[Rfam]
DUF3800-I RNA: a 121-nucleotide sequence.
RNA sequence: UAUUGAUGCAGAUAAAAAACUUAUGCUGUACACUUGCCUAACCGAAUUAACGUUUAAGCGGCCUGUGUGGUCGUCGGUGGUAAGGAGAUUGAGGACGGGUUAUCCGUCCUCUUCUUUUAUA
Numbered sequence: 001u002a003u004u005g006a007u008g009c010a011g012a013u014a015a016a017a018a019a020c021u022u023a024u025g026c027u028g029u030a031c032a033c034u035u036g037c038c039u040a041a042c043c044g045a046a047u048u049a050a051c052g053u054u055u056a057a058g059c060g061g062c063c064u065g066u067g068u069g070g071u072c073g074u075c076g077g078u079g080g081u082a083a084g085g086a087g088a089u090u091g092a093g094g095a096c097g098g099g100u101u102a103u104c105c106g107u108c109c110u111c112u113u114c115u116u117u118u119a120u121a
Base pairs, nucleotide, nucleotide: 007030008029009028010027011026012024013023014022033084034083035082036081037080038079041078042077043076044075045054046053047052058074059073060072061071062070063069091111092110093109094108095107096106097105098104
It is annotated as a small RNA.
From the family's description: Actinobacteria, Firmicutes, Fusobacteria, Proteobacteria (1 example), Tenericutes (2 examples).